Shown here is an 86-nucleotide RNA sequence from Acipenser ruthenus, a member of the family "Small nucleolar RNA SNORD103/SNORD85". Taxonomically the source falls in Acipenser (Eukaryota, Opisthokonta, Actinopteri, Acipenseroidei).
RNA sequence: CCUGGCUGUGAUGACACACUUGCCCUCACUGAGAACCUGGUUCGAUAAUGAGAACCUCUUUAUGUACUCUAUUGUGCUGAGCCAGA
Dot-bracket structure: .(((((..........................................................................))))).